[Rfam]
RNA sequence: UCCGAUAGCUUGGAUCGGACCUCUGCUGGUUUCUGCCGCAGUGAUAUUCCAACGUAGUGGUUAUCACCGGGUGAAAACUGGUAGAGGUCCGAUCCAGACAA
Numbered sequence: 001u002c003c004g005a006u007a008g009c010u011u012g013g014a015u016c017g018g019a020c021c022u023c024u025g026c027u028g029g030u031u032u033c034u035g036c037c038g039c040a041g042u043g044a045u046a047u048u049c050c051a052a053c054g055u056a057g058u059g060g061u062u063a064u065c066a067c068c069g070g071g072u073g074a075a076a077a078c079u080g081g082u083a084g085a086g087g088u089c090c091g092a093u094c095c096a097g098a099c100a101a
Base pairs, nucleotide, nucleotide: 016091017090018089019088020087021086022085024083025082026081027080028079029078030077031076032075034073035072036071037070039069041067042066043065044064045063046062
A member of the RNA family "mir-36 microRNA precursor family" from Caenorhabditis briggsae, 101 nucleotides long. For this family Rfam cites "Patterns of flanking sequence conservation and a characteristic upstream motif for microRNA gene identification" (Ohler et al., RNA, 2004). NCBI's taxonomy places the organism under Eukaryota, Opisthokonta, Nematoda, Peloderinae, Caenorhabditis. Its family is annotated with RISC complex and miRNA-mediated post-transcriptional gene silencing in the Gene Ontology.